[Rfam]
RNA sequence: CUUUGUGAUGACCCCAAUUGAAUCUCGUUCGGCUGAACCCGCUGCUGAGAAGCAACCACUGACUCUG
Numbered sequence: 001c002u003u004u005g006u007g008a009u010g011a012c013c014c015c016a017a018u019u020g021a022a023u024c025u026c027g028u029u030c031g032g033c034u035g036a037a038c039c040c041g042c043u044g045c046u047g048a049g050a051a052g053c054a055a056c057c058a059c060u061g062a063c064u065c066u067g
Base pairs, nucleotide, nucleotide: 023050024049025048026047027046030044031043032042033041
The record is a 67-nucleotide sequence from Strigops habroptila, which matches "Small nucleolar RNA SNORD30" in Rfam. Clan: SNORD30 clan. Its family is annotated with RNA processing and nucleolus in the Gene Ontology. A reference for the family is Tycowski et al. (1996), "A mammalian gene with introns instead of exons generating stable RNA products", Nature. It scores 44 bits against the family's covariance model. The base pairs follow the family's consensus structure.